[Rfam]
RNA sequence: UAAUGUAUUUUAAUAGAAAUGCGUAUAAUUUAGGGGAUAUGGCCCAGAGUUUCUACCAGACUGCCGUAAACGGUCUGACUACGCAGAAAAUCAUAAAAUAG
Numbered sequence: 001u002a003a004u005g006u007a008u009u010u011u012a013a014u015a016g017a018a019a020u021g022c023g024u025a026u027a028a029u030u031u032a033g034g035g036g037a038u039a040u041g042g043c044c045c046a047g048a049g050u051u052u053c054u055a056c057c058a059g060a061c062u063g064c065c066g067u068a069a070a071c072g073g074u075c076u077g078a079c080u081a082c083g084c085a086g087a088a089a090a091u092c093a094u095a096a097a098a099u100a101g
Base pairs, nucleotide, nucleotide: 020085021084022083023082024081025080029048030047031046033045034044035043057077058076059075060074061073062072063071

Shown here is a 101-nucleotide sequence from Virgibacillus indicus, a member of the family "Purine riboswitch aptamer". The family's consensus secondary structure is taken from published work. The match comes from Rfam's covariance-model search (80 bits). Lineage of the source: Bacteria > Bacilli > Caryophanales > Bacillaceae > Virgibacillus.